RNA sequence: CCAGCAAAACGUUCUAUCGCUCGGCGCUCAAAACGCAGGGAGGAAAGUCCGGGCAACACAGAGCAUCCUGCUUCCUAACGGGAAGGCGCCGUCAGCCGGCGACAGCAAGUGCCACAGAAAAUAAACCGCCCCCACAGUAAAGUGAGGGUAAGGGUGAAAACGCGGGGUAAGAGCCCACGGCCUUUACGGGCAACCGUAAUUGCGGUAAACCUCAGGAGUUGAAAGGCCAAAUAGGUCCUGAAUAUGGAAGCUGCUCGCUUCUGUGCUUUGCAAAAAGCACGUCAGGAUGGGUAGGCUGCUAAAGCCUUGCAGCAAUGUAAGGCGCAGAUUAAUGAUAGAAGCCGCGCAAGCGGUACAGAACCCGGCUUACAGCUUUGCUGCUGAU
Dot-bracket structure: .(((((((.(((((((((.(((.(((.(...).))).)))....[[[.[[[[[((((.....[[.((((((((((.....)))))(((((.......)))).)((...(((((............((((((.(((......))).))))..)).......((.(((.......))).))....((((((....))))))....)))..)))))))))))))...((((......((((((.......................(((((.]]...)))))...)))))).....))))......((((((((....))))))))..........)))))))....................]]]]]]]].).).))))))).....
RNA: Bacterial RNase P class A